[Rfam]
RNA sequence: GGUCUGUGAUGAGAAAUAGCCAAAUCUGACCACCAGAAGAUCAUCUUCCAGGUGUCAUGAUUUGUGUGCAGUUCUGAGA
Dot-bracket structure: ..............................((((...(((...)))....)))).........................
Numbered sequence: 001g002g003u004c005u006g007u008g009a010u011g012a013g014a015a016a017u018a019g020c021c022a023a024a025u026c027u028g029a030c031c032a033c034c035a036g037a038a039g040a041u042c043a044u045c046u047u048c049c050a051g052g053u054g055u056c057a058u059g060a061u062u063u064g065u066g067u068g069c070a071g072u073u074c075u076g077a078g079a
Stems, first nucleotide, its partner, number of pairs: 031054004038046003
Notes:
A member of the RNA family "Small nucleolar RNA U2-19" from Nyctiprogne leucopyga, 79 nucleotides long. By type it is a C/D-box small nucleolar RNA. The source organism's lineage runs through Eukaryota, Sarcopterygii, Theropoda, Coelurosauria and Nyctiprogne. Its family is annotated with RNA processing and nucleolus in the Gene Ontology. The match comes from Rfam's covariance-model search (64 bits).